[Rfam]
RNA sequence: GUUUCAUCUCGAGCGCCCGAGGGACUUGGCCCGGCGACGGCGCGGCAACCGACCCUCAUCGCGGCACGGUGCUUUCCAACUCGCGCGGUCGCCGACGAUGGCAUGGAGGCGCGCGAGAACGAUGGAGC
Dot-bracket structure: ((((((((....(((((...(((..[[[[)))......)))))((((.(((.(.........).)..))))))..]]]]((((((((......................))))))))...))))))))